[Rfam]
Background:
A member of the RNA family "Bacterial RNase P class A" from Clostridium tagluense, 378 nucleotides long. NCBI's taxonomy places the organism under Bacteria, Bacillati, Bacillota, Eubacteriales, Clostridium.

RNA sequence: CGAGUAAGCCAGACAAUCGCUGCUGUAGAAAUACAGGAGAGGAAAGUCCGAGCUCCAUAGGGCAAGGGUGCUGGCUAACUACCAGUGGAGGCGACUCUAAGGAAAGUGCAACAGAGAUAUACCGCUAAAGGUAUUCUUAAAGGUCAGUUUUUCUGAACUUUUGAAUAUACUAGUAAGGGUGGAAAGGCGAGGUAAGAGCUCACCAGCGCAAUGGCGACUUUGCGGCUAUGUAAACCCCAUCUGGAGCAAGAUCGAAUAGGAAAGCAUUUUGGGACUGCCCGUCCCGCUUUCGGGUGUAUCGCUUGAGCCUACUGGUAACAAUAGGCCUAGAUAGAUGAUUGUCUAAUACAGAACUCGGCUUAUAGACUUACUCGCAUU
Numbered sequence: 001c002g003a004g005u006a007a008g009c010c011a012g013a014c015a016a017u018c019g020c021u022g023c024u025g026u027a028g029a030a031a032u033a034c035a036g037g038a039g040a041g042g043a044a045a046g047u048c049c050g051a052g053c054u055c056c057a058u059a060g061g062g063c064a065a066g067g068g069u070g071c072u073g074g075c076u077a078a079c080u081a082c083c084a085g086u087g088g089a090g091g092c093g094a095c096u097c098u099a100a101g102g103a104a105a106g107u108g109c110a111a112c113a114g115a116g117a118u119a120u121a122c123c124g125c126u127a128a129a130g131g132u133a134u135u136c137u138u139a140a141a142g143g144u145c146a147g148u149u150u151u152u153c154u155g156a157a158c159u160u161u162u163g164a165a166u167a168u169a170c171u172a173g174u175a176a177g178g179g180u181g182g183a184a185a186g187g188c189g190a191g192g193u194a195a196g197a198g199c200u201c202a203c204c205a206g207c208g209c210a211a212u213g214g215c216g217a218c219u220u221u222g223c224g225g226c227u228a229u230g231u232a233a234a235c236c237c238c239a240u241c242u243g244g245a246g247c248a249a250g251a252u253c254g255a256a257u258a259g260g261a262a263a264g265c266a267u268u269u270u271g272g273g274a275c276u277g278c279c280c281g282u283c284c285c286g287c288u289u290u291c292g293g294g295u296g297u298a299u300c301g302c303u304u305g306a307g308c309c310u311a312c313u314g315g316u317a318a319c320a321a322u323a324g325g326c327c328u329a330g331a332u333a334g335a336u337g338a339u340u341g342u343c344u345a346a347u348a349c350a351g352a353a354c355u356c357g358g359c360u361u362a363u364a365g366a367c368u369u370a371c372u373c374g375c376a377u378u
Stems, first nucleotide, its partner, number of pairs: 001374008010365001011363001012343007020039002023036005044361003048358005053246004060280004065242003069239002071085004086100001087098004101237002106235002108231003122178002124174003130168001186204002189201003206226001207224005213218001250300003260291006271285005307326005313320002